[Rfam]
The record is a 154-nucleotide RNA sequence from Setophaga kirtlandii, which matches "Small Cajal body specific RNA 1" in Rfam. Gene Ontology terms of the family: nucleolus, RNA processing and Cajal body. Pairs were carried over by alignment from the consensus structure, which was predicted with RNAalifold. From the family's description: scaRNAs are a specific class of small nuclear RNAs which localise to the Cajal bodies and guide the modification of RNA polymerase II transcribed spliceosomal RNAs U1, U2, U4, U5 and U12. ACA35 belong to the H/ACA box class of guide RNAs as it has the predicted hairpin-hinge-hairpin-tail structure, conserved H/ACA-box motifs and is found associated with GAR1.
RNA sequence: GAGCACUUGAUACUAACCGAGCCAUCAGUGUCCCAGGCUCUGCAGGGACACCCUGUGAUUGCUGGGUCUGCAAAGUGCAACAGCAAAACAGCCAUGCAGUGUUUAAGCUCAGUGUGUGAAGAAAGACACUGGGUUAUAGCUCAGAGGCACAGAA
Numbered sequence: 001g002a003g004c005a006c007u008u009g010a011u012a013c014u015a016a017c018c019g020a021g022c023c024a025u026c027a028g029u030g031u032c033c034c035a036g037g038c039u040c041u042g043c044a045g046g047g048a049c050a051c052c053c054u055g056u057g058a059u060u061g062c063u064g065g066g067u068c069u070g071c072a073a074a075g076u077g078c079a080a081c082a083g084c085a086a087a088a089c090a091g092c093c094a095u096g097c098a099g100u101g102u103u104u105a106a107g108c109u110c111a112g113u114g115u116g117u118g119a120a121g122a123a124a125g126a127c128a129c130u131g132g133g134u135u136a137u138a139g140c141u142c143a144g145a146g147g148c149a150c151a152g153a154a
Stems, first nucleotide, its partner, number of pairs: 003078006016067003020063003024059003028051005033045001091148003112127002115124001117122001129144006